[Rfam]
Nucleotides: 172
Stems, first nucleotide, its partner, number of pairs: 001016002005012002028172001030170003036163001041158006047151005063146006074138003078134001084133002087115004093108004
Number, partner (000 for none) and nucleotide at each position: 001016a002015u003000g004000a005012g006011g007000g008000u009000g010000a011006c012005c013000g014000a015002g016001u017000g018000u019000g020000g021000g022000g023000a024000g025000g026000a027000a028172g029000c030170g031169u032168g033000g034000a035000g036163c037000g038000u039000a040000a041158a042157u043156c044155g045154c046153g047151a048150g049149c050148c051147g052000a053000u054000g055000g056000a057000c058000a059000a060000g061000a062000a063146c064145u065144g066143c067142a068141u069000a070000g071000a072000a073000g074138g075137c076136g077000c078134u079000g080000g081000c082000g083000a084133g085132c086000a087115g088114g089113g090112c091000g092000a093108g094107c095106g096105g097000g098000c099000a100000u101000g102000a103000a104000a105096c106095c107094g108093c109000g110000a111000a112090g113089c114088u115087c116000u117000c118000g119000u120000g121000a122000u123000c124000a125000a126000g127000g128000c129000g130000a131000a132085g133084c134078g135000g136076c137075g138074u139000a140000g141068a142067u143066g144065c145064a146063g147051c148050g149049g150048u151047u152000g153046u154045g155044c156043g157042a158041u159000g160000a161000a162000g163036g164000a165000g166000u167000g168032c169031g170030u171000u172028c
Group II catalytic intron D1-D4-3: a 172-nucleotide RNA sequence.